[Rfam]
RNA sequence: CCGGUACCGGUUCACGCCCUGUGGGGGGCGACCCGGCGACC
Numbered sequence: 001c002c003g004g005u006a007c008c009g010g011u012u013c014a015c016g017c018c019c020u021g022u023g024g025g026g027g028g029c030g031a032c033c034c035g036g037c038g039a040c041c
Stems, first nucleotide, its partner, number of pairs: 003041003007036004015030006

Shown here is a 41-nucleotide sequence from Stackebrandtia albiflava, a member of the family "L31-Actinobacteria ribosomal protein leader". Taxonomically the source falls in Stackebrandtia (Bacteria, Bacillati, Actinomycetes, Glycomycetales).